t44 RNA: a 96-nucleotide RNA sequence from Thiothrix unzii. About the family: This family consists of a number of bacterial RNA genes of between 135 and 170 bases in length. The literature on the family includes a 2002 paper in Nucleic Acids Res by Tjaden et al., "Transcriptome analysis of Escherichia coli using high-density oligonucleotide probe arrays". It scores 79 bits against the family's covariance model. The family's RNA type in Rfam is small RNA.

[Rfam]
RNA sequence: AAAGACUGUUUUUUAAUUCACACAUAUAUCGACACGUCGCGCAGGGUGCUGGGUAGUUUUAUCCGGUUGCGUUGAUGGGAUGUAUGGAGGCAUAAC
Dot-bracket structure: ......................((((((((....(((((((((....(((((..........))))))))).))))).))))))))..........
Numbered sequence: 001a002a003a004g005a006c007u008g009u010u011u012u013u014u015a016a017u018u019c020a021c022a023c024a025u026a027u028a029u030c031g032a033c034a035c036g037u038c039g040c041g042c043a044g045g046g047u048g049c050u051g052g053g054u055a056g057u058u059u060u061a062u063c064c065g066g067u068u069g070c071g072u073u074g075a076u077g078g079g080a081u082g083u084a085u086g087g088a089g090g091c092a093u094a095a096c
Stems, first nucleotide, its partner, number of pairs: 023086008035077005040071004048067005